[Rfam]
RNA sequence: AUUGACCAACUUUAAGUAUACGAUGAACUGCAGCAUGCCAGGCUUCCCUGCAGUUCAUCGUAUACUUAAAGUUGGUCAGU
Numbered sequence: 001a002u003u004g005a006c007c008a009a010c011u012u013u014a015a016g017u018a019u020a021c022g023a024u025g026a027a028c029u030g031c032a033g034c035a036u037g038c039c040a041g042g043c044u045u046c047c048c049u050g051c052a053g054u055u056c057a058u059c060g061u062a063u064a065c066u067u068a069a070a071g072u073u074g075g076u077c078a079g080u
Base pairs, nucleotide, nucleotide: 001080002079003078004077005076006075007074008073009072010071011070012069013068014067015066016065017064018063019062020061021060022059023058024057025056026055027054028053029052030051031050032049037043038042
Shown here is an 80-nucleotide sequence from Bos taurus, a member of the family "mir-6536 microRNA precursor family".
Rfam 15.1 lists 12 matches to the family in 6 species.
NCBI's taxonomy places the organism under Eukaryota, Eumetazoa, Chordata, Euteleostomi, Bos.